This 151-nucleotide sequence from Streptomyces jumonjinensis belongs to the Rfam family "c-di-AMP riboswitch aptamer (ydaO/yuaA leader)". About the family: This family represents a conserved RNA structure found upstream of the ydaO and yuaA genes in Bacillus subtilis and related genes in other bacteria. The ydaO/yuaA element is thought to act as a genetic 'off' switch for the ydaO and yuaA genes in its native state. It is believed that the element may be triggered during osmotic shock leading to activation of ydaO, a predicted amino acid transporter gene, and members of the yuaA-yubG operon which code for KtrA and KtrB K+ transporters. Rfam 15.1 lists 7,607 matches to the family in 2,262 species. Gene Ontology terms of the family: cyclic-di-AMP binding and regulation of gene expression.

[Rfam]
Nucleotides: 151
Stems, first nucleotide, its partner, number of pairs: 002025002026133006036071001072118003080095004098112004
Number, partner (000 for none) and nucleotide at each position: 001000a002025u003024c004000a005000c006000g007000a008000c009000a010000u011000c012000c013000g014000u015000a016000u017000g018000c019000g020000g021000c022000a023000g024003g025002a026133g027132c028131g029130g030129g031128g032000g033000a034000a035000c036071c037000a038000g039000g040000c041000a042000g043000u044000a045000c046000g047000c048000c049000g050000g051000u052000c053000c054000g055000g056000a057000u058000c059000u060000c061000c062000g063000g064000a065000c066000g067000g068000c069000u070000c071036g072118g073117g074116g075000u076000g077000a078000a079000g080095c081094c082093g083092c084000g085000c086000a087000g088000c089000c090000g091000c092083g093082c094081g095080g096000c097000c098112g099111g100110g101109c102000a103000u104000c105000u106000c107000c108000a109101g110100c111099c112098c113000g114000a115000a116074c117073c118072c119000g120000a121000c122000a123000g124000c125000u126000c127000a128031c129030c130029u131028c132027g133026c134000a135000g136000g137000c138000g139000c140000c141000g142000g143000a144000g145000a146000g147000g148000a149000a150000u151000c